RNA: L31-Corynebacteriaceae ribosomal protein leader
RNA sequence: ACUCAGGCACGAUCCGCGCCAAAGGGGGCCGGCUCCGGCCGGUGCUCCCCCUCUGAACGGGUGCGGAACCGACCUGAAGUGCAAUCCUGAGGGA
Numbered sequence: 001a002c003u004c005a006g007g008c009a010c011g012a013u014c015c016g017c018g019c020c021a022a023a024g025g026g027g028g029c030c031g032g033c034u035c036c037g038g039c040c041g042g043u044g045c046u047c048c049c050c051c052u053c054u055g056a057a058c059g060g061g062u063g064c065g066g067a068a069c070c071g072a073c074c075u076g077a078a079g080u081g082c083a084a085u086c087c088u089g090a091g092g093g094a
Base pairs, nucleotide, nucleotide: 001080002079003078004076005075006074007073013067014066015065016064017063018062019061020055021054